[Rfam]
RNA sequence: GCAUCCGGCAAGAACUUGGAACUGUGAUCUGUGUGGUUAUUAGCCGCGUUCGAAGCUCUUCACAUCACAGUCUGAGUUCUUGCUCGAUGG
Numbered sequence: 001g002c003a004u005c006c007g008g009c010a011a012g013a014a015c016u017u018g019g020a021a022c023u024g025u026g027a028u029c030u031g032u033g034u035g036g037u038u039a040u041u042a043g044c045c046g047c048g049u050u051c052g053a054a055g056c057u058c059u060u061c062a063c064a065u066c067a068c069a070g071u072c073u074g075a076g077u078u079c080u081u082g083c084u085c086g087a088u089g090g
Base pairs, nucleotide, nucleotide: 004087005086009082010081011080012079013078014077015076016075017074022070023069024068025067026066027065031063032062033061

Shown here is a 90-nucleotide RNA from Anopheles gambiae, a member of the family "mir-11 microRNA precursor family". Its Rfam clan is "mir-6 clan". On this family, see Cai et al., Funct Integr Genomics 2010: "Novel microRNAs in silkworm (Bombyx mori)". Rfam 15.1 lists 138 matches to the family in 136 species. NCBI's taxonomy places the organism under Eukaryota, Opisthokonta, Allotriocarida, Anophelinae, gambiae species complex. Rfam links the family to the GO terms cellular response to gamma radiation, RISC complex and negative regulation of apoptotic process.